Annotation:
Rfam assigns this 96-nucleotide RNA sequence from Papaver somniferum to the family "Small nucleolar RNA snoR53Y". Its family is annotated with nucleolus and RNA processing in the Gene Ontology. Taxonomically the source falls in Papaver (Eukaryota, Streptophyta, Mesangiospermae, Papaveraceae). The literature on the family includes a 2001 paper in RNA by Brown et al., "Multiple snoRNA gene clusters from Arabidopsis".
RNA sequence: GUUCCCUGUGAUGAUUAACUACCAUGCUAAUUCUGAGAUUCCUUUGGGUCUUAAUGAAUUGAAUCCUAUUGUUUAUCCAGAACGUCUGAGGGAACU
Numbered sequence: 001g002u003u004c005c006c007u008g009u010g011a012u013g014a015u016u017a018a019c020u021a022c023c024a025u026g027c028u029a030a031u032u033c034u035g036a037g038a039u040u041c042c043u044u045u046g047g048g049u050c051u052u053a054a055u056g057a058a059u060u061g062a063a064u065c066c067u068a069u070u071g072u073u074u075a076u077c078c079a080g081a082a083c084g085u086c087u088g089a090g091g092g093a094a095c096u
Base pairs, nucleotide, nucleotide: 001095002094003093004092005091006090007089